Group II catalytic intron D1-D4-3: a 174-nucleotide RNA. The sequence is in the family's curated seed alignment.
[Rfam]
RNA sequence: UCCGUCGCGAGGCGGAAUCUGAAGGAAGCUGUAGGCAAACUCCCGGCCCGACGAACAGGAACCGCAUACGAGGCAGCCACAUCUGGGCGAGAGGGCCAUGAAACUCGAAGCCCAAUAGCUAUCUAGAAGAUGUGGAAGUAGAUGCGGCGGGUAGAUGGGAGGAAGGUCGCGCGC
Number, nucleotide and partner (000 for none) at each position: 001u016002c015003c014004g013005u012006c011007g000008c000009g000010a000011g006012g005013c004014g003015g002016a001017a000018u000019c000020u000021g000022a000023a000024g000025g000026a000027a000028g174029c173030u000031g000032u000033a000034g000035g167036c166037a000038a000039a000040c161041u160042c159043c158044c157045g156046g152047c151048c150049c149050g148051a000052c000053g000054a000055a000056c000057a000058g000059g000060a000061a000062c147063c146064g145065c144066a143067u142068a000069c000070g000071a000072g000073g139074c138075a000076g000077c135078c134079a133080c132081a131082u130083c129084u000085g113086g112087g111088c110089g000090a000091g106092a105093g104094g000095g000096c000097c000098a000099u000100g000101a000102a000103a000104c093105u092106c091107g000108a000109a000110g088111c087112c086113c085114a000115a000116u000117a000118g000119c000120u000121a000122u000123c000124u000125a000126g000127a000128a000129g083130a082131u081132g080133u079134g078135g077136a000137a000138g074139u073140a000141g000142a067143u066144g065145c064146g063147g062148c050149g049150g048151g047152u046153a000154g000155a000156u045157g044158g043159g042160a041161g040162g000163a000164a000165g000166g036167u035168c000169g000170c000171g000172c000173g029174c028